[Rfam]
RNA sequence: GCCUGGGCGCAGUGGUUUAUCGAUCCUUUCCCUGCCUUGUGCUACUGAUCCUGGGCCGGGCGGCGAUUGGAUACUUUUUUUCUUCUUGUCACAGCUUAUGCGGGAAUCGAUCGAUAAACCUCUGCAUCCGGUU
Numbered sequence: 001g002c003c004u005g006g007g008c009g010c011a012g013u014g015g016u017u018u019a020u021c022g023a024u025c026c027u028u029u030c031c032c033u034g035c036c037u038u039g040u041g042c043u044a045c046u047g048a049u050c051c052u053g054g055g056c057c058g059g060g061c062g063g064c065g066a067u068u069g070g071a072u073a074c075u076u077u078u079u080u081u082c083u084u085c086u087u088g089u090c091a092c093a094g095c096u097u098a099u100g101c102g103g104g105a106a107u108c109g110a111u112c113g114a115u116a117a118a119c120c121u122c123u124g125c126a127u128c129c130g131g132u133u
Stems, first nucleotide, its partner, number of pairs: 003131005009125004014120012028106005034101002037098001
A member of the RNA family "MIR162_2 microRNA precursor family" from Brachypodium distachyon, 133 nucleotides long. Taxonomically the source falls in Brachypodium (Eukaryota, Spermatophyta, Poaceae, Stipodae). The family's consensus secondary structure was predicted with RNAalifold.